[Rfam]
RNA sequence: CCGAGCUCCGCUCGCCGGAUCUGCGUGCCGCGGAUGCGGGCACGCAGCUCCGUCGAGCGUUGCUCGACG
Dot-bracket structure: .(((((..((((((.((((..((((((((((....)).))))))))..)))).))))))..)))))...
Numbered sequence: 001c002c003g004a005g006c007u008c009c010g011c012u013c014g015c016c017g018g019a020u021c022u023g024c025g026u027g028c029c030g031c032g033g034a035u036g037c038g039g040g041c042a043c044g045c046a047g048c049u050c051c052g053u054c055g056a057g058c059g060u061u062g063c064u065c066g067a068c069g
Stems, first nucleotide, its partner, number of pairs: 002066005009059006016052004022046008030037002